[Rfam]
RNA sequence: AUGAAGUUGAUCACAACAAACACAAACCCCUUUGUUUGACAGUGACAAAUUUCUCCCAUCCCCUUUGUUCGUAUAAUAGAAAAAUGCCUUGCAGUAAAAUCUGCAAGGCAUUUU
Numbered sequence: 001a002u003g004a005a006g007u008u009g010a011u012c013a014c015a016a017c018a019a020a021c022a023c024a025a026a027c028c029c030c031u032u033u034g035u036u037u038g039a040c041a042g043u044g045a046c047a048a049a050u051u052u053c054u055c056c057c058a059u060c061c062c063c064u065u066u067g068u069u070c071g072u073a074u075a076a077u078a079g080a081a082a083a084a085u086g087c088c089u090u091g092c093a094g095u096a097a098a099a100u101c102u103g104c105a106a107g108g109c110a111u112u113u114u
Base pairs, nucleotide, nucleotide: 003053004052005051006050007049008048011045012044013043014042017038018037019036020035021034022033069080072078084111085110086109087108088107089106090105091104092103093102094101